[Rfam]
RNA sequence: GCCACUCUGGAAAGCAGGGCGGUGGCGGGGCAGCGCCCCUUCGCCGCCCUCACCGACGGUGCAAGCCAUGGCACGCCAGUGCCGCGGCGAAGCUCUCAGGUCGACAUGACAGAGGGGGAGGC
Numbered sequence: 001g002c003c004a005c006u007c008u009g010g011a012a013a014g015c016a017g018g019g020c021g022g023u024g025g026c027g028g029g030g031c032a033g034c035g036c037c038c039c040u041u042c043g044c045c046g047c048c049c050u051c052a053c054c055g056a057c058g059g060u061g062c063a064a065g066c067c068a069u070g071g072c073a074c075g076c077c078a079g080u081g082c083c084g085c086g087g088c089g090a091a092g093c094u095c096u097c098a099g100g101u102c103g104a105c106a107u108g109a110c111a112g113a114g115g116g117g118g119a120g121g122c
Stems, first nucleotide, its partner, number of pairs: 002117002005114005016050010052101003055097002059095001061093001065088002
RNA: Glycine riboswitch aptamer